Shown here is a 232-nucleotide RNA, a member of the family "permuted transfer-messenger RNA". Rfam classes the family as a non-coding RNA gene. It scores 59 bits against the family's covariance model. Rfam links the family to the GO term RNA catabolic process. The family's consensus secondary structure is taken from published work.
RNA sequence: UGUGAUAUAUCUUAUUAGGUUUAUUGGAAACUAUUAGGACGAGGGUUCGACUCCCUCCAGCUCCACGAGUUUCUGUAUAUCUUUUCUCACUAUACCAUUGCGGUUUGAGUAAAAAAGAUAUAUUUUAAGGGGCUGCUUGGAUUUGACUAGUAGUGAAAGGUAAAAUAGGUUCACUUUAAAUUUAAAUGGCAAUACAUUUGUCACUGAUUACACUGCUCUAGGAGCGGCGUAA
Numbered sequence: 001u002g003u004g005a006u007a008u009a010u011c012u013u014a015u016u017a018g019g020u021u022u023a024u025u026g027g028a029a030a031c032u033a034u035u036a037g038g039a040c041g042a043g044g045g046u047u048c049g050a051c052u053c054c055c056u057c058c059a060g061c062u063c064c065a066c067g068a069g070u071u072u073c074u075g076u077a078u079a080u081c082u083u084u085u086c087u088c089a090c091u092a093u094a095c096c097a098u099u100g101c102g103g104u105u106u107g108a109g110u111a112a113a114a115a116a117g118a119u120a121u122a123u124u125u126u127a128a129g130g131g132g133c134u135g136c137u138u139g140g141a142u143u144u145g146a147c148u149a150g151u152a153g154u155g156a157a158a159g160g161u162a163a164a165a166u167a168g169g170u171u172c173a174c175u176u177u178a179a180a181u182u183u184a185a186a187u188g189g190c191a192a193u194a195c196a197u198u199u200g201u202c203a204c205u206g207a208u209u210a211c212a213c214u215g216c217u218c219u220a221g222g223a224g225c226g227g228c229g230u231a232a
Stems, first nucleotide, its partner, number of pairs: 002174004020164003031153003035149003041057005058135007